[Rfam]
RNA sequence: UGUUAUAGGCAGGGGCCAUAACAGAAAUAUUCACAUCAUGACCCUGUCAGGUAAUACCUGGUAAUACCUGAACAUUCUGCU
Numbered sequence: 001u002g003u004u005a006u007a008g009g010c011a012g013g014g015g016c017c018a019u020a021a022c023a024g025a026a027a028u029a030u031u032c033a034c035a036u037c038a039u040g041a042c043c044c045u046g047u048c049a050g051g052u053a054a055u056a057c058c059u060g061g062u063a064a065u066a067c068c069u070g071a072a073c074a075u076u077c078u079g080c081u
Base pairs, nucleotide, nucleotide: 013043015042017040020081022079023078024077025076026075027039028038048070049069050068051067052066053065